Description:
Bacterial RNase P class A: a 364-nucleotide RNA sequence from Palleronia caenipelagi. Lineage of the source: Bacteria > Pseudomonadota > Alphaproteobacteria > Roseobacteraceae > Palleronia. Pairs were carried over by alignment from the consensus structure, which is taken from published work.

RNA sequence: GCGGAUGGCUGGAUGACCGCGUGUGGGUCCUGCCCGCGCGAGGAAAGUCCGGACUCCAGGAGGCGACGGUGCCGGGUAACGCCCGGGCGGGGCAACCCGACGGAAAGCGCCACAGAAAACAGACCGCCCCGGCCUGUCCGGGGUAAGGGUGAAACGGUGGAGUAAGAGCCCACCGGGGCUCUGGCAACAGGGCCCGCAUGGCAAGCCCCACCGGGAGCAAUGCCGAAUAGGGGAUCCACCGGCAGCUUCCGCCAGGAUCCCGGGUAGGCAGCUAGAUCCGUCCGGCAACGGGCGGGGCAGAUGAAUGGUCAUCCAGUGUCUUUCGGGACAUGGACAGAAUCCGGCUUACAGGCCGUCCGCGCGC
Numbered sequence: 001g002c003g004g005a006u007g008g009c010u011g012g013a014u015g016a017c018c019g020c021g022u023g024u025g026g027g028u029c030c031u032g033c034c035c036g037c038g039c040g041a042g043g044a045a046a047g048u049c050c051g052g053a054c055u056c057c058a059g060g061a062g063g064c065g066a067c068g069g070u071g072c073c074g075g076g077u078a079a080c081g082c083c084c085g086g087g088c089g090g091g092g093c094a095a096c097c098c099g100a101c102g103g104a105a106a107g108c109g110c111c112a113c114a115g116a117a118a119a120c121a122g123a124c125c126g127c128c129c130c131g132g133c134c135u136g137u138c139c140g141g142g143g144u145a146a147g148g149g150u151g152a153a154a155c156g157g158u159g160g161a162g163u164a165a166g167a168g169c170c171c172a173c174c175g176g177g178g179c180u181c182u183g184g185c186a187a188c189a190g191g192g193c194c195c196g197c198a199u200g201g202c203a204a205g206c207c208c209c210a211c212c213g214g215g216a217g218c219a220a221u222g223c224c225g226a227a228u229a230g231g232g233g234a235u236c237c238a239c240c241g242g243c244a245g246c247u248u249c250c251g252c253c254a255g256g257a258u259c260c261c262g263g264g265u266a267g268g269c270a271g272c273u274a275g276a277u278c279c280g281u282c283c284g285g286c287a288a289c290g291g292g293c294g295g296g297g298c299a300g301a302u303g304a305a306u307g308g309u310c311a312u313c314c315a316g317u318g319u320c321u322u323u324c325g326g327g328a329c330a331u332g333g334a335c336a337g338a339a340u341c342c343g344g345c346u347u348a349c350a351g352g353c354c355g356u357c358c359g360c361g362c363g364c
Base pairs, nucleotide, nucleotide: 001360002359003358004357005356006355007354008353009352010351011349012313013312014311015310016309017308018307020040021039022038023037024036025035026034027033028032045347046346047345049344050343051342052341053340054217055216056215057214062249063248065246067213068212069211070210071209072086073085074084075083076082087101088099089098090097091096102208103207107206108205109202110201111200124148125147126144127143128142129141130140131139132138156174157173158172159171160170175197176195177194178193179192180191181190182189183188221270222269223268224267231261232260233259234258235257236256241253242252243251277296278295279294280293281292282291283290284289
Dot-bracket structure: ((((((((((((((((((.(((((((((...)))))))))....[[[.[[[[[((((....[[.[.((((((((((.....)))))(((((....)))).)((...(((((............(((((((((.....)))))))..)).......(((((.........)))))(((((((((....)))))))).)..)))..)))))))))))))...((((......((((((....(((..].]].)))..)))))).....))))......((((((((....))))))))..........)))))))..........................]]]]]]]].).))))))))))....
A reference for the family is Frank and Pace (1998), "Ribonuclease P: unity and diversity in a tRNA processing ribozyme", Annu Rev Biochem. The match comes from Rfam's covariance-model search (301 bits).